[Rfam]
RNA sequence: AAAAAGGGCUUCUGCCGUGCAUGGCACACGCAGAGCAGCCUGAUUGCUCUGCGUGCAGGAUCAACAUCAAGAGAUUUCAGAAGCAUAAUGUUUUGGUACUUGGGCAGCUGGUGAUCUUUGGUCCUGGAACCCGC
Number, nucleotide and partner (000 for none) at each position: 001a000002a000003a000004a000005a000006g000007g000008g084009c083010u082011u081012c080013u026014g025015c024016c023017g022018u000019g000020c000021a000022u017023g016024g015025c014026a013027c055028a054029c053030g052031c051032a050033g049034a048035g047036c046037a045038g044039c000040c000041u000042g000043a000044u038045u037046g036047c035048u034049c033050u032051g031052c030053g029054u028055g027056c000057a000058g077059g076060a075061u074062c073063a000064a000065c000066a000067u000068c000069a000070a000071g000072a000073g062074a061075u060076u059077u058078c000079a000080g012081a011082a010083g009084c008085a000086u000087a000088a000089u000090g000091u000092u000093u000094u000095g000096g000097u000098a000099c000100u000101u000102g132103g131104g130105c000106a000107g000108c127109u126110g125111g124112u000113g123114a122115u121116c120117u000118u000119u000120g116121g115122u114123c113124c111125u110126g109127g108128a000129a000130c104131c103132c102133g000134c000

This 134-nucleotide RNA from Cnephaeus nilssonii belongs to the Rfam family "U11 spliceosomal RNA". Gene Ontology terms of the family: pre-mRNA 5'-splice site binding, mRNA 5'-splice site recognition and U11 snRNP. Taxonomically the source falls in Cnephaeus (Eukaryota, Deuterostomia, Euteleostomi, Amniota). A search with the family's covariance model found it, with a score of 104 bits. Rfam classes the family as a spliceosomal small nuclear RNA.